Shown here is a 98-nucleotide RNA sequence, a member of the family "DUF3800-V RNA". Rfam classes the family as a small RNA.
RNA sequence: UGGAUGAGUGAUAAGUCCGGUAUAGGUUGCUUCUAGUGUUCCCAUUCAUCUGUUUGGCUAAGCUAGAACAUAACAAGCCUAUGAGGCACUCUCAUCCG
Numbered sequence: 001u002g003g004a005u006g007a008g009u010g011a012u013a014a015g016u017c018c019g020g021u022a023u024a025g026g027u028u029g030c031u032u033c034u035a036g037u038g039u040u041c042c043c044a045u046u047c048a049u050c051u052g053u054u055u056g057g058c059u060a061a062g063c064u065a066g067a068a069c070a071u072a073a074c075a076a077g078c079c080u081a082u083g084a085g086g087c088a089c090u091c092u093c094a095u096c097c098g
Base pairs, nucleotide, nucleotide: 001098002097003096004095005094006093008091023081024080025079026078027077028075031068032067033066034065035064036063037062042057043056044055047052